[Rfam]
RNA sequence: GGUGAAUAUGCAGCGCCAGAACCGGUAUUUCACUCCAUGGUUAAAAUUCUAGUGGGUACAUAAGUGGAUUCCGGUUGACGAGGAAGGGGCUUAUCGAAGAUUUCGGCGGAUGGCCCCUCGGCCGCUUACGGUCGACAGCCUAGCUACAAAUCCCGGGAGCAAUCGCGGAGACAAAAAGCUGGCAGUGAGUGUC
Dot-bracket structure: ...................((((((.(.(.....................................).).))))))........(((((....((((.....)))).......)))))((((((....)))))).....((((((.......(((.((....)).)))........))))))...........

Rfam assigns this 193-nucleotide RNA from Heliobacterium mobile to the family "glmS glucosamine-6-phosphate activated ribozyme aptamer".
The organism belongs to Heliobacterium, within Bacteria.
Rfam describes the family as follows. This entry contains a glucosamine-6-phosphate activated ribozyme that is found in the mRNA for GlmS. GlmS is an enzyme that uses fructose-6-phosphate and glutamine to generate glucosamine-6-phosphate.
The family's RNA type in Rfam is riboswitch.